[Rfam]
RNA sequence: GUGCCAUGAUGUCAAUUGUCAACACAUCAUUCUGAAGAGGAAUUGUGUGGAGACCUUCCGAGUUCUGAGCACC
Numbered sequence: 001g002u003g004c005c006a007u008g009a010u011g012u013c014a015a016u017u018g019u020c021a022a023c024a025c026a027u028c029a030u031u032c033u034g035a036a037g038a039g040g041a042a043u044u045g046u047g048u049g050g051a052g053a054c055c056u057u058c059c060g061a062g063u064u065c066u067g068a069g070c071a072c073c
Base pairs, nucleotide, nucleotide: 001072002071003070004069
Rfam assigns this 73-nucleotide RNA from Erpornis zantholeuca to the family "Small nucleolar RNA SNORD63". The family has 23 seed sequences and 795 matches in Rfam 15.1. A reference for the family is Galardi et al. (2002), "Purified box C/D snoRNPs are able to reproduce site-specific 2'-O-methylation of target RNA in vitro", Mol Cell Biol. It scores 54 bits against the family's covariance model. snoRNA U63 is found in both humans and mice. By type it is a C/D-box small nucleolar RNA. Gene Ontology terms of the family: nucleolus and RNA processing.